[Rfam]
RNA sequence: GUAUCCAAGAAGAAGCGCCCCGCUUCUCACCUGAUCGACGCACGGGCUGUUGACAGGUUUCAUCGCGGAUGACUUCGAUGUUGAGUGUGGGCGUGAGGUCCGCACUUUUUUGUUUUA
Numbered sequence: 001g002u003a004u005c006c007a008a009g010a011a012g013a014a015g016c017g018c019c020c021c022g023c024u025u026c027u028c029a030c031c032u033g034a035u036c037g038a039c040g041c042a043c044g045g046g047c048u049g050u051u052g053a054c055a056g057g058u059u060u061c062a063u064c065g066c067g068g069a070u071g072a073c074u075u076c077g078a079u080g081u082u083g084a085g086u087g088u089g090g091g092c093g094u095g096a097g098g099u100c101c102g103c104a105c106u107u108u109u110u111u112g113u114u115u116u117a
Base pairs, nucleotide, nucleotide: 011027012026013025014024015023016022029058030057031056037051038050039049040047041046086104087103088102089101090100091099092098
The family of this 117-nucleotide sequence from Planifilum fulgidum is "Ribosomal protein L20 leader".
The match comes from Rfam's covariance-model search (60 bits).
Taxonomically the source falls in Planifilum (Bacteria, Bacillati, Bacilli, Caryophanales).
Gene Ontology term of the family: regulation of gene expression.
For this family Rfam cites "Diverse mechanisms for regulating ribosomal protein synthesis in Escherichia coli" (Zengel and Lindahl, Prog Nucleic Acid Res Mol Biol, 1994).
Pairs were carried over by alignment from the consensus structure, which was predicted with CMfinder.